[Rfam]
RNA sequence: UGGCACCCAACGUGGGGCCUGGAUACUGGGGGACGUGAGGGACACAACGGAAGAAGAAGGGGUGCGUACCCGCUCAAAUAGUUCGGAGACGUCGCGGUAGCCUGCUGUGACCGAGCCGACAGGUAAGUUGGUCGUUCAAUCAUGGGGCAAAAAAUUAAGUCAGCAUCAAAAAUAUGUGAUACAGUUAAGGAAAGUUUUACAGGCAAGAGGAGUAAAGGUUACAACUGAGGAUUCAUUUCAUUUCUUUGAUUUCGUGAAAGACAUCUGCCCAU
Numbered sequence: 001u002g003g004c005a006c007c008c009a010a011c012g013u014g015g016g017g018c019c020u021g022g023a024u025a026c027u028g029g030g031g032g033a034c035g036u037g038a039g040g041g042a043c044a045c046a047a048c049g050g051a052a053g054a055a056g057a058a059g060g061g062g063u064g065c066g067u068a069c070c071c072g073c074u075c076a077a078a079u080a081g082u083u084c085g086g087a088g089a090c091g092u093c094g095c096g097g098u099a100g101c102c103u104g105c106u107g108u109g110a111c112c113g114a115g116c117c118g119a120c121a122g123g124u125a126a127g128u129u130g131g132u133c134g135u136u137c138a139a140u141c142a143u144g145g146g147g148c149a150a151a152a153a154a155u156u157a158a159g160u161c162a163g164c165a166u167c168a169a170a171a172a173u174a175u176g177u178g179a180u181a182c183a184g185u186u187a188a189g190g191a192a193a194g195u196u197u198u199a200c201a202g203g204c205a206a207g208a209g210g211a212g213u214a215a216a217g218g219u220u221a222c223a224a225c226u227g228a229g230g231a232u233u234c235a236u237u238u239c240a241u242u243u244c245u246u247u248g249a250u251u252u253c254g255u256g257a258a259a260g261a262c263a264u265c266u267g268c269c270c271a272u
Stems, first nucleotide, its partner, number of pairs: 006031003012026003035045002083123002085120001090113002093109005133147001135146004156199003159195002207247006217233004257272001260269001262267001